[Rfam]
RNA: DUF3800-X RNA
RNA sequence: CAACGAGUAAGUCCUGCUGAAAGGAUGACGGCUCAGGAUUGAGCUCAGGACCAGUAAGCAGGGUUCGUUC
Number, nucleotide and partner (000 for none) at each position: 001c000002a069003a068004c067005g066006a065007g000008u000009a000010a000011g000012u063013c062014c061015u060016g059017c058018u057019g000020a000021a000022a000023g000024g000025a000026u000027g000028a000029c000030g000031g044032c043033u042034c041035a040036g000037g000038a000039u000040u035041g034042a033043g032044c031045u000046c000047a000048g000049g000050a000051c000052c000053a000054g000055u000056a000057a018058g017059c016060a015061g014062g013063g012064u000065u006066c005067g004068u003069u002070c000